[Rfam]
RNA sequence: UUCCGAGGGUCAGGAGAGCGCCCGCCGAAGUCGAAAUUCGAAAGGGGCCGCCGAAGGCGCAGGCCCGUUCGUUGAGCAGGUCCGAACGCUCAGGCAAAAGGACUGACAAGACGCC
Numbered sequence: 001u002u003c004c005g006a007g008g009g010u011c012a013g014g015a016g017a018g019c020g021c022c023c024g025c026c027g028a029a030g031u032c033g034a035a036a037u038u039c040g041a042a043a044g045g046g047g048c049c050g051c052c053g054a055a056g057g058c059g060c061a062g063g064c065c066c067g068u069u070c071g072u073u074g075a076g077c078a079g080g081u082c083c084g085a086a087c088g089c090u091c092a093g094g095c096a097a098a099a100g101g102a103c104u105g106a107c108a109a110g111a112c113g114c115c
Stems, first nucleotide, its partner, number of pairs: 009107005020048004050095003053091002057089003062083002
Shown here is a 115-nucleotide RNA sequence from Variovorax sp., a member of the family "Glycine riboswitch aptamer". The pairing is the family consensus, mapped onto this sequence.